The record is a 370-nucleotide RNA sequence from Dermacoccus sp. 147Ba, which matches "Bacterial RNase P class A" in Rfam. It is annotated as a ribozyme. NCBI's taxonomy places the organism under Bacteria, Bacillati, Actinomycetota, Actinomycetes, Dermacoccus.
[Rfam]
RNA sequence: UGAGUCGGCCGGGCGGUCGCGUCGAAGAUUCGUCUUCGCCGAGGAAAGUCCGGGCUCCGAAGGGCAGGGUGGUGGCUAACGGCCACCCGGGGUGACCCGCGGGACAGUGCCACAGAAAACAGACCGCCGCGCUUCGUGCGCGGUAAGGGUGAAACGGUGGUGUAAGAGACCACCAGCGCUCCAGGUGACUGGAGCGGCUCGGUAAACCCCACCCGGAGCAAGAUCGAACAGUGCGCGUCGAAGCUGCCCGCUGAGCGCACGGGUAGAUUGCUCGAGCCACGCAGCAAUGCGCGGCCUAGAUGGAUGAUCGCCGAAGUGACACCGGUGACGGUGCGCGGAACACAACCCGGCUUACAGGCCGGCUCAUCCC
Numbered sequence: 001u002g003a004g005u006c007g008g009c010c011g012g013g014c015g016g017u018c019g020c021g022u023c024g025a026a027g028a029u030u031c032g033u034c035u036u037c038g039c040c041g042a043g044g045a046a047a048g049u050c051c052g053g054g055c056u057c058c059g060a061a062g063g064g065c066a067g068g069g070u071g072g073u074g075g076c077u078a079a080c081g082g083c084c085a086c087c088c089g090g091g092g093u094g095a096c097c098c099g100c101g102g103g104a105c106a107g108u109g110c111c112a113c114a115g116a117a118a119a120c121a122g123a124c125c126g127c128c129g130c131g132c133u134u135c136g137u138g139c140g141c142g143g144u145a146a147g148g149g150u151g152a153a154a155c156g157g158u159g160g161u162g163u164a165a166g167a168g169a170c171c172a173c174c175a176g177c178g179c180u181c182c183a184g185g186u187g188a189c190u191g192g193a194g195c196g197g198c199u200c201g202g203u204a205a206a207c208c209c210c211a212c213c214c215g216g217a218g219c220a221a222g223a224u225c226g227a228a229c230a231g232u233g234c235g236c237g238u239c240g241a242a243g244c245u246g247c248c249c250g251c252u253g254a255g256c257g258c259a260c261g262g263g264u265a266g267a268u269u270g271c272u273c274g275a276g277c278c279a280c281g282c283a284g285c286a287a288u289g290c291g292c293g294g295c296c297u298a299g300a301u302g303g304a305u306g307a308u309c310g311c312c313g314a315a316g317u318g319a320c321a322c323c324g325g326u327g328a329c330g331g332u333g334c335g336c337g338g339a340a341c342a343c344a345a346c347c348c349g350g351c352u353u354a355c356a357g358g359c360c361g362g363c364u365c366a367u368c369c370c
Stems, first nucleotide, its partner, number of pairs: 001366010011355001012312007020041002023038006046353003050350005055218004062249004067214005072086005087101001088099004102209002107207002109203003124148002126144007156174006176198001177196008222269004231260006242252003276295003280291004

From the family's description: Ribonuclease P (RNase P) is a ubiquitous endoribonuclease, found in archaea, bacteria and eukarya as well as chloroplasts and mitochondria. The match comes from Rfam's covariance-model search (317 bits). Its family is annotated with tRNA processing, dimeric ribonuclease P complex and ribonuclease P activity in the Gene Ontology. The base pairs follow the family's consensus structure, which is taken from published work.